[Rfam]
Rfam assigns this 119-nucleotide RNA sequence from Gossypium raimondii to the family "MIR7504 microRNA precursor family". The family's consensus secondary structure was predicted with RNAalifold. Rfam 15.1 lists 7,343 matches to the family in 61 species. The match comes from Rfam's covariance-model search (94 bits). Lineage of the source: Eukaryota > Streptophyta > Streptophytina > eudicotyledons > Gossypium.
RNA sequence: AAUAGAAGAAUGACAAAUCAGAUUUUUUUCUCCUGAUUUUCAACUUUUUCCUAUUUUUUCAAAUUCAAUUAGAAAUACUAAAAAUCGGGAGGAAAAAUCAGAUUUGUCAUUUUCCUAUU
Numbered sequence: 001a002a003u004a005g006a007a008g009a010a011u012g013a014c015a016a017a018u019c020a021g022a023u024u025u026u027u028u029u030c031u032c033c034u035g036a037u038u039u040u041c042a043a044c045u046u047u048u049u050c051c052u053a054u055u056u057u058u059u060c061a062a063a064u065u066c067a068a069u070u071a072g073a074a075a076u077a078c079u080a081a082a083a084a085u086c087g088g089g090a091g092g093a094a095a096a097a098u099c100a101g102a103u104u105u106g107u108c109a110u111u112u113u114c115c116u117a118u119u
Base pairs, nucleotide, nucleotide: 001119002118003117004116005115007113008112009111010110011109012108013107014106015105016104017103018102019101021099022098023097024096026095027094028093030091031090032089033088034087035086036085037084038083039082040081042079046075047074048073049072